[Rfam]
RNA sequence: GACAACCGUGAUGAGCCAAUUUACAGUUACAGACCUGUAAUGACUCAUGCGGAAAUGAUCGCAUGGUCAAAUAACAUCUAAGGGACGCUGCUCAGUUAUU
Numbered sequence: 001g002a003c004a005a006c007c008g009u010g011a012u013g014a015g016c017c018a019a020u021u022u023a024c025a026g027u028u029a030c031a032g033a034c035c036u037g038u039a040a041u042g043a044c045u046c047a048u049g050c051g052g053a054a055a056u057g058a059u060c061g062c063a064u065g066g067u068c069a070a071a072u073a074a075c076a077u078c079u080a081a082g083g084g085a086c087g088c089u090g091c092u093c094a095g096u097u098a099u100u
Stems, first nucleotide, its partner, number of pairs: 002099001004097003

This 100-nucleotide RNA from Triticum aestivum belongs to the Rfam family "Small nucleolar RNA SNORD25". The family is grouped with related families in Rfam's "SNORD25 clan". The match comes from Rfam's covariance-model search (54 bits). Pairs were carried over by alignment from the consensus structure, which was predicted with PFOLD. The family has 12 seed sequences and 985 matches in Rfam 15.1.